[Rfam]
Bacillus sRNA ncr1015: a 112-nucleotide sequence from Paenibacillus faecis. The family's RNA type in Rfam is small RNA. The organism belongs to Paenibacillus, within Bacteria.

RNA sequence: AUGUAAGAUGCGAUACUUAUGACAAUAAGACAUAAAAAACUUGCGAUCUGAUUAUAACAUCGAGUUUUCUUAUAUGCAAUCCACAAACCUGAUAAACCAUCAGGUUUUUUUA
Number, nucleotide and partner (000 for none) at each position: 001a000002u000003g000004u000005a000006a000007g000008a000009u000010g000011c000012g000013a000014u000015a000016c000017u000018u000019a000020u000021g000022a000023c000024a000025a000026u000027a000028a000029g000030a000031c000032a000033u000034a073035a000036a071037a070038a068039a065040c064041u063042u062043g061044c000045g000046a000047u000048c000049u000050g000051a000052u000053u000054a000055u000056a000057a000058c000059a000060u000061c043062g042063a041064g040065u039066u000067u000068u038069c000070u037071u036072a000073u034074a000075u000076g000077c000078a000079a000080u000081c000082c000083a109084c000085a107086a106087a105088c104089c103090u102091g101092a100093u000094a000095a000096a000097c000098c000099a000100u092101c091102a090103g089104g088105u087106u086107u085108u000109u083110u000111u000112a000